[Rfam]
RNA sequence: UAAUAGAUGCACCCUGAUUGAUGGCUCUCUGGCAACUUUGCCAGAGGCUUUUUUU
Numbered sequence: 001u002a003a004u005a006g007a008u009g010c011a012c013c014c015u016g017a018u019u020g021a022u023g024g025c026u027c028u029c030u031g032g033c034a035a036c037u038u039u040g041c042c043a044g045a046g047g048c049u050u051u052u053u054u055u
Base pairs, nucleotide, nucleotide: 004011026047027046028045029044030043031042032041033040034039
RNA: Nitrogen stress-induced RNA 1